[Rfam]
RNA: ASdes TB sRNA
RNA sequence: AGCGCCACCGGAUCUACGCCUCGCGUGACGAUGAGGUAGUCGCGUAUUGCGAUGCUGUGCCGCGCCUC
Numbered sequence: 001a002g003c004g005c006c007a008c009c010g011g012a013u014c015u016a017c018g019c020c021u022c023g024c025g026u027g028a029c030g031a032u033g034a035g036g037u038a039g040u041c042g043c044g045u046a047u048u049g050c051g052a053u054g055c056u057g058u059g060c061c062g063c064g065c066c067u068c
Stems, first nucleotide, its partner, number of pairs: 004063002008059001013028001015027004035056004040052005